[Rfam]
RNA sequence: GUCAGGAAGAGGAAGAAAAAGAGUACCUAAGAGCAGUGGACAUGGGAACAUGGAGGCAAGCUCAAACUCUUAUGUCCCUCUAAAUUAGAGGGGUUAGACUUGUUUUGAUGUUUUCCCGAUGCCUCCCAAGCCUAUUGUCCUUAGGUGCUCCUUCCUCUUCCUUUGGCUC
Number, nucleotide and partner (000 for none) at each position: 001g000002u000003c000004a000005g000006g000007a000008a000009g160010a159011g158012g157013a156014a000015g154016a153017a152018a000019a000020a000021g150022a149023g148024u000025a000026c145027c144028u143029a142030a141031g140032a000033g138034c137035a136036g000037u134038g133039g132040a000041c130042a000043u128044g127045g126046g125047a124048a000049c121050a120051u119052g000053g117054a000055g116056g115057c000058a113059a112060g111061c110062u000063c000064a000065a000066a000067c000068u000069c000070u000071u000072a000073u000074g000075u000076c000077c000078c000079u000080c000081u000082a000083a000084a000085u000086u000087a000088g000089a000090g000091g000092g000093g000094u000095u000096a000097g000098a000099c000100u000101u000102g000103u000104u000105u000106u000107g000108a000109u000110g061111u060112u059113u058114u000115c056116c055117c053118g000119a051120u050121g049122c000123c000124u047125c046126c045127c044128a043129a000130g041131c000132c039133u038134a037135u000136u035137g034138u033139c000140c031141u030142u029143a028144g027145g026146u000147g000148c023149u022150c021151c000152u017153u016154c015155c000156u013157c012158u011159u010160c009161c000162u000163u000164u000165g000166g000167c000168u000169c000